Annotation: A member of the RNA family "Actinobacteria sRNA Ms_IGR-5" from Krasilnikovia cinnamomea, 220 nucleotides long. Pairs were carried over by alignment from the consensus structure. For this family Rfam cites "Identification of small RNAs in Mycobacterium smegmatis using heterologous Hfq" (Li et al., RNA, 2013). The organism belongs to Krasilnikovia, within Bacteria. Rfam classes the family as a small RNA. The match comes from Rfam's covariance-model search (99 bits).

[Rfam]
RNA sequence: ACACGCGAAAGGAGGUGGUCCGACGUUGUAUAGCUACGGGACUCGUGAGGUGGCUGUCCGCUAGGCCGCUGUCCUCGACAGCAGAAUGAAACCCCAUGUCGAGACCGUGUGGCAGCGGUCCCGGCCGAAUACCAGACAGCCACCCGACCCCCGGGGUUCCGGCCUUGUCCGACCGGACCGCGCUCCUCGCGAGCGCGGAGAACCCCGGGGGUCGCUUCAU
Numbered sequence: 001a002c003a004c005g006c007g008a009a010a011g012g013a014g015g016u017g018g019u020c021c022g023a024c025g026u027u028g029u030a031u032a033g034c035u036a037c038g039g040g041a042c043u044c045g046u047g048a049g050g051u052g053g054c055u056g057u058c059c060g061c062u063a064g065g066c067c068g069c070u071g072u073c074c075u076c077g078a079c080a081g082c083a084g085a086a087u088g089a090a091a092c093c094c095c096a097u098g099u100c101g102a103g104a105c106c107g108u109g110u111g112g113c114a115g116c117g118g119u120c121c122c123g124g125c126c127g128a129a130u131a132c133c134a135g136a137c138a139g140c141c142a143c144c145c146g147a148c149c150c151c152c153g154g155g156g157u158u159c160c161g162g163c164c165u166u167g168u169c170c171g172a173c174c175g176g177a178c179c180g181c182g183c184u185c186c187u188c189g190c191g192a193g194c195g196c197g198g199a200g201a202a203c204c205c206c207g208g209g210g211g212u213c214g215c216u217u218c219a220u
Stems, first nucleotide, its partner, number of pairs: 014058006059127002061124002064121002066118004071113003145214013159176004164171001